[Rfam]
RNA sequence: CAGGCGCUGCAUGACUGACGGAAGUGGGAUAACCCACAGGAAGUGCAGCGAAAACCAAAGCCGACCGUCUGGGCACCGCGU
Numbered sequence: 001c002a003g004g005c006g007c008u009g010c011a012u013g014a015c016u017g018a019c020g021g022a023a024g025u026g027g028g029a030u031a032a033c034c035c036a037c038a039g040g041a042a043g044u045g046c047a048g049c050g051a052a053a054a055c056c057a058a059a060g061c062c063g064a065c066c067g068u069c070u071g072g073g074c075a076c077c078g079c080g081u
Stems, first nucleotide, its partner, number of pairs: 005050008015040002017069005024037004060074003